[Rfam]
RNA sequence: CUAGCGUCAAAGAAAGCGCCGAAGACAGCAGGUGCUGCAAAGCAGCAUAAGAAGAUAACGCCUGCCGAGGAUGAAAGUGAUUAUGUAUGUUCAGACUUUACAGCCCUCCUUAUCUUCGAGAUUAUGGGAGGGCUUUUGCUCGUUCGGC
Numbered sequence: 001c002u003a004g005c006g007u008c009a010a011a012g013a014a015a016g017c018g019c020c021g022a023a024g025a026c027a028g029c030a031g032g033u034g035c036u037g038c039a040a041a042g043c044a045g046c047a048u049a050a051g052a053a054g055a056u057a058a059c060g061c062c063u064g065c066c067g068a069g070g071a072u073g074a075a076a077g078u079g080a081u082u083a084u085g086u087a088u089g090u091u092c093a094g095a096c097u098u099u100a101c102a103g104c105c106c107u108c109c110u111u112a113u114c115u116u117c118g119a120g121a122u123u124a125u126g127g128g129a130g131g132g133c134u135u136u137u138g139c140u141c142g143u144u145c146g147g148c
Stems, first nucleotide, its partner, number of pairs: 028065006034046003103133008
Source information:
The record is a 148-nucleotide RNA from bacterium 1XD42-8, which matches "Ribosomal protein L10 leader" in Rfam. It is annotated as a cis-regulatory leader. Its family is annotated with regulation of gene expression in the Gene Ontology. Rfam describes the family as follows. This family is a putative r-protein leader autoregulatory structure found in B. subtilis and other low-GC Gram-positive bacteria. It is located in the 5' untranslated regions of mRNAs encoding ribosomal proteins L10 and L12 (rplJ-rplL). A Rho-independent transcription terminator structure that is probably involved in regulation is included at the 3' end.